The family of this 54-nucleotide RNA sequence is "Glutamine riboswitch aptamer (glnA leader)".
The sequence is in the family's curated seed alignment.

RNA sequence: UACGUUCAUCAUGUUUGACAUGACGGAAGUAGGCGAAAGCUGAAGGAACGCAUG
Numbered sequence: 001u002a003c004g005u006u007c008a009u010c011a012u013g014u015u016u017g018a019c020a021u022g023a024c025g026g027a028a029g030u031a032g033g034c035g036a037a038a039g040c041u042g043a044a045g046g047a048a049c050g051c052a053u054g
Stems, first nucleotide, its partner, number of pairs: 003050005009023005026051001032041003